[Rfam]
RNA sequence: GAGUGUAUUUCAUUGGCGAAGGUUAACCGGAGAGGGGAGCCGAAGCGAAAGCAACACGUCCGUAGCCUUCGGGCAUGGGACGACGUAUUAAAAGUGCGUGAAGUCAGUGGAAUACGACCCGAAGCCGGGUGAUCUAUGCGUGGGCAGGUUGAAGCGUGACGAAAGUUGCGUGGAGGACCGCCGGAGGUUUUGAUAUGCAAAUCAUUCUCGUGACCUGCGUAUAGGAGUGAAAGAUUCAUCGAACCCGGCAUCCGCUGGUU
Numbered sequence: 001g002a003g004u005g006u007a008u009u010u011c012a013u014u015g016g017c018g019a020a021g022g023u024u025a026a027c028c029g030g031a032g033a034g035g036g037g038a039g040c041c042g043a044a045g046c047g048a049a050a051g052c053a054a055c056a057c058g059u060c061c062g063u064a065g066c067c068u069u070c071g072g073g074c075a076u077g078g079g080a081c082g083a084c085g086u087a088u089u090a091a092a093a094g095u096g097c098g099u100g101a102a103g104u105c106a107g108u109g110g111a112a113u114a115c116g117a118c119c120c121g122a123a124g125c126c127g128g129g130u131g132a133u134c135u136a137u138g139c140g141u142g143g144g145c146a147g148g149u150u151g152a153a154g155c156g157u158g159a160c161g162a163a164a165g166u167u168g169c170g171u172g173g174a175g176g177a178c179c180g181c182c183g184g185a186g187g188u189u190u191u192g193a194u195a196u197g198c199a200a201a202u203c204a205u206u207c208u209c210g211u212g213a214c215c216u217g218c219g220u221a222u223a224g225g226a227g228u229g230a231a232a233g234a235u236u237c238a239u240c241g242a243a244c245c246c247g248g249c250a251u252c253c254g255c256u257g258g259u260u
Stems, first nucleotide, its partner, number of pairs: 005115013021041004027035002045052002058081004065074003084098004118258002121255001125248006134224011145212001147179004154171007184209004190204001192203002226236003

A member of the RNA family "Archaeal large subunit ribosomal RNA" from Methanofollis fontis, 260 nucleotides of a longer RNA. On this family, see Yusupov et al., Science 2001: "Crystal structure of the ribosome at 5.5 A resolution". NCBI's taxonomy places the organism under Archaea, Methanobacteriota, Methanomicrobiales, Methanomicrobiaceae, Methanofollis.